[Rfam]
RNA sequence: UGCGUGUUCCGGGGUCGGUGGAACUCCGAGCCGGCGGUACAGCCCGCGACCCGUCCGCACCCGCGGAUGGUUGACCCGGUGGGAUUCCGGGGCCGACGGUCACAGUCCGGAUGGGAGGAACACGCG
Numbered sequence: 001u002g003c004g005u006g007u008u009c010c011g012g013g014g015u016c017g018g019u020g021g022a023a024c025u026c027c028g029a030g031c032c033g034g035c036g037g038u039a040c041a042g043c044c045c046g047c048g049a050c051c052c053g054u055c056c057g058c059a060c061c062c063g064c065g066g067a068u069g070g071u072u073g074a075c076c077c078g079g080u081g082g083g084a085u086u087c088c089g090g091g092g093c094c095g096a097c098g099g100u101c102a103c104a105g106u107c108c109g110g111a112u113g114g115g116a117g118g119a120a121c122a123c124g125c126g
Stems, first nucleotide, its partner, number of pairs: 003124008016028003030106002032095002034047004042093002051070002075091005097109003
Notes:
FMN riboswitch aptamer (RFN element): a 126-nucleotide RNA sequence from Actinophytocola oryzae. Pairs were carried over by alignment from the consensus structure, which is taken from published work. NCBI's taxonomy places the organism under Bacteria, Bacillati, Actinomycetota, Actinomycetes, Actinophytocola. A search with the family's covariance model found it, with a score of 99 bits.